[Rfam]
RNA sequence: GGGGUGCCUUUUUGGCCCCCGAAUCUGUGUGUGAAUAGCCCAUUUCCAUUGGCCUGGAUGGGCGGUUCGGGAAUC
Numbered sequence: 001g002g003g004g005u006g007c008c009u010u011u012u013u014g015g016c017c018c019c020c021g022a023a024u025c026u027g028u029g030u031g032u033g034a035a036u037a038g039c040c041c042a043u044u045u046c047c048a049u050u051g052g053c054c055u056g057g058a059u060g061g062g063c064g065g066u067u068c069g070g071g072a073a074u075c
Stems, first nucleotide, its partner, number of pairs: 001020004006016003032069005038063003043060001045058004

The record is a 75-nucleotide sequence, which matches "L13-Bacteroidia ribosomal protein leader" in Rfam.
On this family, see Eckert and Weinberg, BMC Microbiol 2020: "Discovery of 20 novel ribosomal leader candidates in bacteria and archaea".
Rfam's curators put it in the seed alignment.
It is annotated as a cis-regulatory leader.